[Rfam]
RNA sequence: GUGGGAGGAAGCUCACUGCAGAGGUCACAAACUGAGUGUUUAUCACUCUCUCUAGAACCUUGGGGAAGGUCUGAGACAAGAGCCAAUCACUGUCCUUGCAGGGCAUCACCUGAUCCAGGUGAGUGGGUGCACAGAAACCCUGGGCUUGAGUGGUGUGUCUUCAUAAGAGAAGUCAGUCAGUUGUGAAAAGUAGAACUGCUGAUGGAUAUGACAUCACUGGCUUGGAAAUGCUCAUGGCUGGCAACAGAGUUCAAUGUGUGAGCUGGAGCUGAUUUCCAGAACCCAAUUCAGACUACUCUCCUCCUAC
Numbered sequence: 001g002u003g004g005g006a007g008g009a010a011g012c013u014c015a016c017u018g019c020a021g022a023g024g025u026c027a028c029a030a031a032c033u034g035a036g037u038g039u040u041u042a043u044c045a046c047u048c049u050c051u052c053u054a055g056a057a058c059c060u061u062g063g064g065g066a067a068g069g070u071c072u073g074a075g076a077c078a079a080g081a082g083c084c085a086a087u088c089a090c091u092g093u094c095c096u097u098g099c100a101g102g103g104c105a106u107c108a109c110c111u112g113a114u115c116c117a118g119g120u121g122a123g124u125g126g127g128u129g130c131a132c133a134g135a136a137a138c139c140c141u142g143g144g145c146u147u148g149a150g151u152g153g154u155g156u157g158u159c160u161u162c163a164u165a166a167g168a169g170a171a172g173u174c175a176g177u178c179a180g181u182u183g184u185g186a187a188a189a190g191u192a193g194a195a196c197u198g199c200u201g202a203u204g205g206a207u208a209u210g211a212c213a214u215c216a217c218u219g220g221c222u223u224g225g226a227a228a229u230g231c232u233c234a235u236g237g238c239u240g241g242c243a244a245c246a247g248a249g250u251u252c253a254a255u256g257u258g259u260g261a262g263c264u265g266g267a268g269c270u271g272a273u274u275u276c277c278a279g280a281a282c283c284c285a286a287u288u289c290a291g292a293c294u295a296c297u298c299u300c301c302u303c304c305u306a307c
Stems, first nucleotide, its partner, number of pairs: 001307004007301003012262005021061004034048005071291005081239004091105005106122006123235007144221003263279006
Nuclear RNase P: a 307-nucleotide RNA sequence from Silurus meridionalis. From the family's description: Ribonuclease P (RNase P) is a ubiquitous endoribonuclease, found in archaea, bacteria and eukarya as well as chloroplasts and mitochondria. Its best characterised activity is the generation of mature 5'-ends of tRNAs by cleaving the 5'-leader elements of precursor-tRNAs. The source organism's lineage runs through Eukaryota, Actinopteri, Otomorpha, Siluridae and Silurus. The family's consensus secondary structure is taken from published work.